[Rfam]
RNA: mraW RNA
Organism: Mycolicibacterium confluentis
RNA sequence: ACCGGCCCGUGCAUCGUGGCCUCUGUCCGAAUCGGCCCUGGCGUACUUCCCCAACGCCAGGUCCGCAUCGGACAGGGACCUCGAUGUGCGGGCGGCAAACC
Numbered sequence: 001a002c003c004g005g006c007c008c009g010u011g012c013a014u015c016g017u018g019g020c021c022u023c024u025g026u027c028c029g030a031a032u033c034g035g036c037c038c039u040g041g042c043g044u045a046c047u048u049c050c051c052c053a054a055c056g057c058c059a060g061g062u063c064c065g066c067a068u069c070g071g072a073c074a075g076g077g078a079c080c081u082c083g084a085u086g087u088g089c090g091g092g093c094g095g096c097a098a099a100c101c
Stems, first nucleotide, its partner, number of pairs: 010088007018080002021077010033065003037061008